TPP riboswitch aptamer (THI element): a 105-nucleotide RNA from Opacimonas viscosa. It scores 64 bits against the family's covariance model. On this family, see Rodionov et al., J Biol Chem 2002: "Comparative genomics of thiamin biosynthesis in procaryotes. New genes and regulatory mechanisms".
[Rfam]
RNA sequence: UCGCCGUCCAAGGGGUGCUGUAAUCAUGAUUACGGCUGAGAUCAAUUGAAACCCUGAAACCUGAUCCGGAUAAUGCCGGCGUAGGAAUAGGAAAAUCGUUUUUCG
Number, nucleotide and partner (000 for none) at each position: 001u000002c000003g000004c000005c000006g000007u092008c091009c090010a000011a055012g054013g053014g052015g000016u049017g036018c035019u034020g033021u032022a031023a030024u000025c000026a000027u000028g000029a000030u023031u022032a021033c020034g019035g018036c017037u000038g000039a000040g000041a000042u000043c048044a000045a000046u000047u000048g043049a016050a000051a000052c014053c013054c012055u011056g000057a000058a000059a000060c085061c084062u083063g082064a000065u000066c079067c078068g077069g076070a000071u000072a000073a000074u000075g000076c069077c068078g067079g066080c000081g000082u063083a062084g061085g060086a000087a000088u000089a000090g009091g008092a007093a000094a000095a000096u000097c000098g000099u000100u000101u000102u000103u000104c000105g000